[Rfam]
RNA sequence: ACAACGACAAGGCAACACUAUAGAAAUAUAGUUGCGCAAAGCUAUAGGGGCUAAGGUGGUUUCCACUAAGCCAGCCAGUUACCGAA
Numbered sequence: 001a002c003a004a005c006g007a008c009a010a011g012g013c014a015a016c017a018c019u020a021u022a023g024a025a026a027u028a029u030a031g032u033u034g035c036g037c038a039a040a041g042c043u044a045u046a047g048g049g050g051c052u053a054a055g056g057u058g059g060u061u062u063c064c065a066c067u068a069a070g071c072c073a074g075c076c077a078g079u080u081a082c083c084g085a086a
Stems, first nucleotide, its partner, number of pairs: 012037002017032006040080004047076002049072003056066004
Description
Rfam assigns this 86-nucleotide RNA sequence from Rummeliibacillus stabekisii to the family "c-di-GMP-I riboswitch aptamer". From the family's description: GEMM was predicted in a large-scale screen for bacterial structured RNA regulatory elements. The match comes from Rfam's covariance-model search (71 bits). Lineage of the source: Bacteria > Bacillati > Caryophanales > Caryophanaceae > Rummeliibacillus.